[Rfam]
RNA sequence: GACCCAAAUCUGAAGUAGGGUAGAUUAGCGAGGUUAACUGAUCCUACUAUUCUACUGUACUUCGAAAUUGGGCCC
Numbered sequence: 001g002a003c004c005c006a007a008a009u010c011u012g013a014a015g016u017a018g019g020g021u022a023g024a025u026u027a028g029c030g031a032g033g034u035u036a037a038c039u040g041a042u043c044c045u046a047c048u049a050u051u052c053u054a055c056u057g058u059a060c061u062u063c064g065a066a067a068u069u070g071g072g073c074c075c
Base pairs, nucleotide, nucleotide: 001074003072004071005070006069007068009066011064012063013062014061015060016059017058019056020055021054022053023052026049027048028047030045032043033042034041035040

mir-5928 microRNA precursor family: a 75-nucleotide RNA sequence from Haemonchus placei. The family has 5 seed sequences and 1,672 matches in Rfam 15.1.